[Rfam]
This 48-nucleotide RNA sequence from Polerovirus SCYLV belongs to the Rfam family "Exoribonuclease-resistant RNA (xrRNA) plant-infecting virus (class 3)". The literature on the family includes a 2024 paper in bioRxiv [Preprint] by Gezelle et al., "The pseudoknot structure of a viral RNA reveals a conserved mechanism for programmed exoribonuclease resistance". Rfam's curators put it in the seed alignment. Lineage of the source: Viruses > Orthornavirae > Pisoniviricetes > Sobelivirales > Polerovirus SCYLV. Exoribonuclease-resistant RNA (xrRNA) plant-infecting virus (class 3) is a ncRNA that was reported in Plant viruses.
RNA sequence: UCCCGAGCCACCACAUAGGUUGCAAGAGUGGAACGGGGAGUCCUAUAG
Numbered sequence: 001u002c003c004c005g006a007g008c009c010a011c012c013a014c015a016u017a018g019g020u021u022g023c024a025a026g027a028g029u030g031g032a033a034c035g036g037g038g039a040g041u042c043c044u045a046u047a048g
Base pairs, nucleotide, nucleotide: 001037002036003035008031009030012026015046016045017044018043019042
Description: The family's consensus secondary structure is taken from published work.